[Rfam]
RNA sequence: GGCCAGGGGGAAAGAAGAAGUACAAGCUAAAGCACAUCGUAUGGGCAAGCAGGGAGCUAGAACGAUUCGCAGUUAAUCCUGGCC
Number, nucleotide and partner (000 for none) at each position: 001g084002g083003c082004c081005a080006g079007g078008g077009g000010g000011a000012a000013a000014g000015a000016a000017g000018a000019a000020g000021u000022a000023c000024a000025a000026g000027c000028u000029a000030a000031a000032g000033c000034a000035c000036a000037u000038c000039g000040u000041a000042u000043g000044g000045g000046c000047a000048a000049g000050c000051a000052g000053g000054g000055a000056g000057c000058u000059a000060g000061a000062a000063c000064g000065a000066u000067u000068c000069g000070c000071a000072g000073u000074u000075a000076a000077u008078c007079c006080u005081g004082g003083c002084c001
This 84-nucleotide sequence from Lentivirus humimdef1 belongs to the Rfam family "HIV gag stem loop 3 (GSL3)". It is annotated as a cis-regulatory element. A reference for the family is Damgaard et al. (2004), "RNA interactions in the 5' region of the HIV-1 genome", J Mol Biol. Its family is annotated with viral RNA genome packaging in the Gene Ontology. This family consists of several HIV gag stem loop 3 (GSL3) sequences. The source organism's lineage runs through Viruses, Riboviria, Pararnavirae, Retroviridae and Lentivirus humimdef1.